The record is a 204-nucleotide RNA, which matches "manA RNA" in Rfam. The family's consensus secondary structure is taken from published work. The family's RNA type in Rfam is cis-regulatory element. Rfam describes the family as follows. manA RNA has been located in 5'UTR regions of genes of mannose or fructose metabolism. Has been proposed as a cis-regulatory element and as a riboswitch candidate for his complex secondary structure.
RNA sequence: UGUUGGGCCGACGGGUUCCAACACGGGAGUGACUGAAUUAAACUUGCUGGCAAUAGGCUGGUUAAGGUGAUGAGUCAGAGGUGGUACUCGCUUUCCUUCGGGAUAGAACCAUCCUACCAGAUGGGACUCAUGCAACGCAGUAAAAUUACUAAGAGUAGCAAUGCCCUGCGUUUGUAAGCAUACUCAAAUCUUACCUCCCUCAUA
Numbered sequence: 001u002g003u004u005g006g007g008c009c010g011a012c013g014g015g016u017u018c019c020a021a022c023a024c025g026g027g028a029g030u031g032a033c034u035g036a037a038u039u040a041a042a043c044u045u046g047c048u049g050g051c052a053a054u055a056g057g058c059u060g061g062u063u064a065a066g067g068u069g070a071u072g073a074g075u076c077a078g079a080g081g082u083g084g085u086a087c088u089c090g091c092u093u094u095c096c097u098u099c100g101g102g103a104u105a106g107a108a109c110c111a112u113c114c115u116a117c118c119a120g121a122u123g124g125g126a127c128u129c130a131u132g133c134a135a136c137g138c139a140g141u142a143a144a145a146u147u148a149c150u151a152a153g154a155g156u157a158g159c160a161a162u163g164c165c166c167u168g169c170g171u172u173u174g175u176a177a178g179c180a181u182a183c184u185c186a187a188a189u190c191u192u193a194c195c196u197c198c199c200u201c202a203u204a
Base pairs, nucleotide, nucleotide: 001023002022003021004020005019006018025199026198027197028196029195032068033067046062047061048060049059050058051057071130072129073128074127075126076125078089079088080087082119083118084117085116091106092105094103095102096101109124110123111122112121113120134172135171136170137169138168139167140166146161147160149158153185154184155183156182174194175193176192177191178190